[Rfam]
RNA: MIR4359 microRNA precursor family
RNA sequence: AUGUUAACAUGUGAUACCUUAACAUCGGUUUUCUAAAAAACCGAUGUUAAUGUAUACACGUUAACAU
Numbered sequence: 001a002u003g004u005u006a007a008c009a010u011g012u013g014a015u016a017c018c019u020u021a022a023c024a025u026c027g028g029u030u031u032u033c034u035a036a037a038a039a040a041c042c043g044a045u046g047u048u049a050a051u052g053u054a055u056a057c058a059c060g061u062u063a064a065c066a067u
Base pairs, nucleotide, nucleotide: 001067002066003065004064005063006062007061008060010058011057014055015054016053017052019050020049021048022047023046024045025044026043027042028041029040030039031038032037